Plant signal recognition particle RNA: a 293-nucleotide sequence from Marchantia polymorpha. Rfam 15.1 lists 4,988 matches to the family in 266 species.

RNA sequence: UCUGGGCAGCGUAGCGGCUGCCUGUAACCCGAGCGGGAGUAAGAGAGAUGGAGCUGGGGCUCUUGCAGAGGACCGCUGGGAUCAUGUCGAAGGCACGUCCACCCGAAGCGUGGAGUCUCUGAUCUGGGCUCCUCGGCGGAAGCCAGGGGAGUCUGUGGGAAUGAUGCGGAGGGCACAGCGUGAGGCGGGCGACCGAGCAGCGAUCACUUCCAGCUCUGCGCAGUCGGGGGACCGCGUGCUGGAAUGCUUGCCAGCGAUCAUCCGAUGUGAUGAGCUUCCUGCAACCUCUCUCU
Numbered sequence: 001u002c003u004g005g006g007c008a009g010c011g012u013a014g015c016g017g018c019u020g021c022c023u024g025u026a027a028c029c030c031g032a033g034c035g036g037g038a039g040u041a042a043g044a045g046a047g048a049u050g051g052a053g054c055u056g057g058g059g060c061u062c063u064u065g066c067a068g069a070g071g072a073c074c075g076c077u078g079g080g081a082u083c084a085u086g087u088c089g090a091a092g093g094c095a096c097g098u099c100c101a102c103c104c105g106a107a108g109c110g111u112g113g114a115g116u117c118u119c120u121g122a123u124c125u126g127g128g129c130u131c132c133u134c135g136g137c138g139g140a141a142g143c144c145a146g147g148g149g150a151g152u153c154u155g156u157g158g159g160a161a162u163g164a165u166g167c168g169g170a171g172g173g174c175a176c177a178g179c180g181u182g183a184g185g186c187g188g189g190c191g192a193c194c195g196a197g198c199a200g201c202g203a204u205c206a207c208u209u210c211c212a213g214c215u216c217u218g219c220g221c222a223g224u225c226g227g228g229g230g231a232c233c234g235c236g237u238g239c240u241g242g243a244a245u246g247c248u249u250g251c252c253a254g255c256g257a258u259c260a261u262c263c264g265a266u267g268u269g270a271u272g273a274g275c276u277u278c279c280u281g282c283a284a285c286c287u288c289u290c291u292c293u
Stems, first nucleotide, its partner, number of pairs: 002039002004023007028037003042293007050285001053282002056279003059275004064270001068266001070263003074256006081249001085243001092240007099230002102228005108221009118160003122156002126154009135144003168211005177204001179202003186195003

Its family is annotated with signal recognition particle, endoplasmic reticulum targeting and SRP-dependent cotranslational protein targeting to membrane, signal sequence recognition in the Gene Ontology.